[Rfam]
Rfam assigns this 170-nucleotide RNA from Firmicutes bacterium CAG:475 to the family "Lysine riboswitch aptamer".
RNA sequence: CAUCUCGAUAGAGGUGCGGAUUUUAUGAUAAGCCGACGGCGCAGACUUCGUCGCGGUGGCAAAGGAAAAUCCGCCGAAAGAAAGACUUGUUUGGUCUGAAACGAUCUUUCUUGGGACAACGCAGAAUAUGCGUUGUACUGUCACCUUAAAGGUGGAGCGCUAUCAACGUU
Numbered sequence: 001c002a003u004c005u006c007g008a009u010a011g012a013g014g015u016g017c018g019g020a021u022u023u024u025a026u027g028a029u030a031a032g033c034c035g036a037c038g039g040c041g042c043a044g045a046c047u048u049c050g051u052c053g054c055g056g057u058g059g060c061a062a063a064g065g066a067a068a069a070u071c072c073g074c075c076g077a078a079a080g081a082a083a084g085a086c087u088u089g090u091u092u093g094g095u096c097u098g099a100a101a102c103g104a105u106c107u108u109u110c111u112u113g114g115g116a117c118a119a120c121g122c123a124g125a126a127u128a129u130g131c132g133u134u135g136u137a138c139u140g141u142c143a144c145c146u147u148a149a150a151g152g153u154g155g156a157g158c159g160c161u162a163u164c165a166a167c168g169u170u
Stems, first nucleotide, its partner, number of pairs: 007164005016074009034055001078112008087104006113139002116136008141155006